RNA sequence: GUUGGAUAUGGUGAUGUUUACCCGAAAUCAACGCCCGGAAAGAUUGUUGGUUGUUUAUGCGCAGUAUGUGGUCUUCUUAUUUUGGCAAUGCCUAUAGCUAUUAUUGCAACAAAU
Numbered sequence: 001g002u003u004g005g006a007u008a009u010g011g012u013g014a015u016g017u018u019u020a021c022c023c024g025a026a027a028u029c030a031a032c033g034c035c036c037g038g039a040a041a042g043a044u045u046g047u048u049g050g051u052u053g054u055u056u057a058u059g060c061g062c063a064g065u066a067u068g069u070g071g072u073c074u075u076c077u078u079a080u081u082u083u084g085g086c087a088a089u090g091c092c093u094a095u096a097g098c099u100a101u102u103a104u105u106g107c108a109a110c111a112a113a114u
Stems, first nucleotide, its partner, number of pairs: 001114002005110001007108001009106003013102004018097003037077004050062002

Shown here is a 114-nucleotide RNA from Mytilus galloprovincialis, a member of the family "Potassium channel RNA editing signal". Lineage of the source: Eukaryota > Eumetazoa > Protostomia > Autobranchia > Mytilus. The match comes from Rfam's covariance-model search (59 bits). About the family: This family represents a group of sequences related to the human potassium channel Kv1.1 hairpin element which directs the efficient modification of an adenosine to inosine by an adenosine deaminase acting on RNA (ADAR). The ADAR modification causes an isoleucine/valine recoding event which lies in the ion-conducting pore of the potassium channel. It is thought that this editing event targets the process of fast inactivation and allows a more rapid recovery from inactivation at negative potentials.